[Rfam]
RNA: SAM riboswitch aptamer (S box leader)
Organism: Kyrpidia spormannii
RNA sequence: CUCUUAUCCAGAGUGGCGGAGGGACUGGCCCGAUGAAGCCCGGCAACCACCGGAAUGUCCGGAGAGGUGCCAAUUCCUGCAGGCCGCGUGAGCGACCUGAGAGAUGAGAG
Dot-bracket structure: ((((((((....(.(((...(((.[.[[)))......))))((((.((.(((.......)))...))))))...(]].]((((.(........).))))..)))))))))